[Rfam]
RNA sequence: CUGUCGUGCAUUGUAGUUGCAUUGCACGUUCCGGCAGUACUGGUGCAAUGUUCCCACAGUGCAUUACAG
Numbered sequence: 001c002u003g004u005c006g007u008g009c010a011u012u013g014u015a016g017u018u019g020c021a022u023u024g025c026a027c028g029u030u031c032c033g034g035c036a037g038u039a040c041u042g043g044u045g046c047a048a049u050g051u052u053c054c055c056a057c058a059g060u061g062c063a064u065u066a067c068a069g
Base pairs, nucleotide, nucleotide: 001069002068003067004066006065007063008062009061010060011059012058013057014056016054019051021049022048023047024046025045026044027043
RNA: mir-33 microRNA precursor family
Organism: Ornithorhynchus anatinus